[Rfam]
The record is a 124-nucleotide sequence from Bucco capensis, which matches "Small nucleolar RNA ACA64" in Rfam. The family's RNA type in Rfam is H/ACA-box small nucleolar RNA.
RNA sequence: GUAAUCUGAAAAUCACUUGGGGUCUUCUGUGGCCCCUGGUGAGAUAACUGUGCCGAAGCAGAGGGAACAUUAAGCUUAUUACCCACAGUAAUACAUGGGGAGUGAAACCCAUAUUCCUAUAAUC
Numbered sequence: 001g002u003a004a005u006c007u008g009a010a011a012a013u014c015a016c017u018u019g020g021g022g023u024c025u026u027c028u029g030u031g032g033c034c035c036c037u038g039g040u041g042a043g044a045u046a047a048c049u050g051u052g053c054c055g056a057a058g059c060a061g062a063g064g065g066a067a068c069a070u071u072a073a074g075c076u077u078a079u080u081a082c083c084c085a086c087a088g089u090a091a092u093a094c095a096u097g098g099g100g101a102g103u104g105a106a107a108c109c110c111a112u113a114u115u116c117c118u119a120u121a122a123u124c
Base pairs, nucleotide, nucleotide: 006050008048010045013042014041015040016039021034022033023032024031064117066115067114069112070111076105077104078103079102080101084097085096

Rfam links the family to the GO terms nucleolus and RNA processing.